Source information: This 107-nucleotide RNA from Sporofaciens musculi belongs to the Rfam family "TPP riboswitch aptamer (THI element)".

[Rfam]
RNA sequence: UAUGUCACACAGGGGUGCUUUAAAUGGCUGAGAUGUAUGCAAAGCAUACGGACCCUUAAAACUUGAUCCGGGUAAUGCCGGCGUAAGGAAAGGAGAACUUCAUAAUG
Numbered sequence: 001u002a003u004g005u006c007a008c009a010c011a012g013g014g015g016u017g018c019u020u021u022a023a024a025u026g027g028c029u030g031a032g033a034u035g036u037a038u039g040c041a042a043a044g045c046a047u048a049c050g051g052a053c054c055c056u057u058a059a060a061a062c063u064u065g066a067u068c069c070g071g072g073u074a075a076u077g078c079c080g081g082c083g084u085a086a087g088g089a090a091a092g093g094a095g096a097a098c099u100u101c102a103u104a105a106u107g
Base pairs, nucleotide, nucleotide: 006095008093011056012055013054014053016050017028018027019026035049036048037047038046039045062087063086064085065084068081069080070079071078